[Rfam]
RNA sequence: UGUAUUCUUACAUCAAAAGAAAACGAUUGCGAGAGCCGAGAGGCUCUCAUUAUGCCCUAGUCGACUUGCCCUCCUAGUCACUAGGGUGUUUUU
Dot-bracket structure: ..............................(((((((....))))))).....(((((((..((((.........)))).)))))))......
The family of this 93-nucleotide sequence from Geobacter argillaceus is "atoC RNA". By type it is a cis-regulatory element. The base pairs follow the family's consensus structure, which is taken from published work.